The family of this 91-nucleotide RNA from Drosophila gunungcola is "mir-958 microRNA precursor family".
RNA sequence: CGGCGUGUCUUUGGCAAGUAGAAUAGCAGGCUUAUCACAUGUUUCGUUCAAUCCGCUGUGAGAUUCUUCUAUUCUACUUUCGACAAGACCC
Number, nucleotide and partner (000 for none) at each position: 001c000002g000003g091004c000005g089006u088007g000008u000009c000010u000011u000012u082013g081014g080015c000016a079017a078018g077019u076020a075021g074022a073023a072024u071025a070026g069027c000028a068029g067030g066031c000032u000033u000034a000035u061036c060037a059038c058039a057040u000041g056042u055043u000044u000045c000046g000047u000048u000049c000050a000051a000052u000053c000054c000055g042056c041057u039058g038059u037060g036061a035062g000063a000064u000065u000066c030067u029068u028069c026070u025071a024072u023073u022074c021075u020076a019077c018078u017079u016080u014081c013082g012083a000084c000085a000086a000087g000088a006089c005090c000091c003